[Rfam]
RNA: Eukaryotic large subunit ribosomal RNA, nucleotides 940 to 1431
Organism: Blastomyces gilchristii
RNA sequence: UCUGCUGAAGUUUCUCUCAGAAUAGUAGUAAUAUUUUCAGUUUUAUAAGAUAAAGUGAAUGAUUAGAGGCCUUGAGAUUGAAACAACCUUAAUCUAUUCUCAAACUUUAAAUAUGUAAGAAGCUCUUGUUACUUUAUUGAAUGUAAGCACUGAAAUGAAUUGUUACUAGUGAAUCAUUUUUAAUAAGCAGAACUGAUAAUGCAGGAUGAACUGAAUAUGAGAUUAAGAUAUCAGAAUACACACUCAUCAGAUCUUAUAAAAGAUGUUAGUUCAUUUAGACAGCCUGAUGAUGACUAUGAAAGUCAGAAUCUGCUAAGAAGUGUGUAACAACUCAUGAGCUGAAUGAACUAGCUCUGAAAAUGAAUGACACUCAAGUGUGCUAUUCAUACCUCACUGAUGAGGUAGAAUUGAAGCCCUGAUAAGUAGGCAGGUGUGAAGAUUCAUGACAAAGUCUAGAGAGUAAUUCUGAGUUAAAUAAUCUCUAGUACAGAU
Numbered sequence: 001u002c003u004g005c006u007g008a009a010g011u012u013u014c015u016c017u018c019a020g021a022a023u024a025g026u027a028g029u030a031a032u033a034u035u036u037u038c039a040g041u042u043u044u045a046u047a048a049g050a051u052a053a054a055g056u057g058a059a060u061g062a063u064u065a066g067a068g069g070c071c072u073u074g075a076g077a078u079u080g081a082a083a084c085a086a087c088c089u090u091a092a093u094c095u096a097u098u099c100u101c102a103a104a105c106u107u108u109a110a111a112u113a114u115g116u117a118a119g120a121a122g123c124u125c126u127u128g129u130u131a132c133u134u135u136a137u138u139g140a141a142u143g144u145a146a147g148c149a150c151u152g153a154a155a156u157g158a159a160u161u162g163u164u165a166c167u168a169g170u171g172a173a174u175c176a177u178u179u180u181u182a183a184u185a186a187g188c189a190g191a192a193c194u195g196a197u198a199a200u201g202c203a204g205g206a207u208g209a210a211c212u213g214a215a216u217a218u219g220a221g222a223u224u225a226a227g228a229u230a231u232c233a234g235a236a237u238a239c240a241c242a243c244u245c246a247u248c249a250g251a252u253c254u255u256a257u258a259a260a261a262g263a264u265g266u267u268a269g270u271u272c273a274u275u276u277a278g279a280c281a282g283c284c285u286g287a288u289g290a291u292g293a294c295u296a297u298g299a300a301a302g303u304c305a306g307a308a309u310c311u312g313c314u315a316a317g318a319a320g321u322g323u324g325u326a327a328c329a330a331c332u333c334a335u336g337a338g339c340u341g342a343a344u345g346a347a348c349u350a351g352c353u354c355u356g357a358a359a360a361u362g363a364a365u366g367a368c369a370c371u372c373a374a375g376u377g378u379g380c381u382a383u384u385c386a387u388a389c390c391u392c393a394c395u396g397a398u399g400a401g402g403u404a405g406a407a408u409u410g411a412a413g414c415c416c417u418g419a420u421a422a423g424u425a426g427g428c429a430g431g432u433g434u435g436a437a438g439a440u441u442c443a444u445g446a447c448a449a450a451g452u453c454u455a456g457a458g459a460g461u462a463a464u465u466c467u468g469a470g471u472u473a474a475a476u477a478a479u480c481u482c483u484a485g486u487a488c489a490g491a492u
Stems, first nucleotide, its partner, number of pairs: 001431006011024001013022001015020001027167007041120007053108001054106002060102003065097001067095003072092005079085001122148003127143004173197004178192004202213003218393004223388001227384003236381001241377003261355003265352010282339002285336002288312002294306002313317001322331002395421002398418002401415003432487001434484002437481005443476002451471002458465002